RNA sequence: AGGAUUAGAUGCACCCUGAUGGAUGUUCCCCCACGCCUAAACCGCGUUGGGGGAUUUUUUU
Numbered sequence: 001a002g003g004a005u006u007a008g009a010u011g012c013a014c015c016c017u018g019a020u021g022g023a024u025g026u027u028c029c030c031c032c033a034c035g036c037c038u039a040a041a042c043c044g045c046g047u048u049g050g051g052g053g054a055u056u057u058u059u060u061u
Base pairs, nucleotide, nucleotide: 002015003014006013028053029052030051031050032049033048034046035045036044
The record is a 61-nucleotide RNA from Oscillatoriaceae cyanobacterium M33_DOE_052, which matches "Nitrogen stress-induced RNA 1" in Rfam. The base pairs follow the family's consensus structure.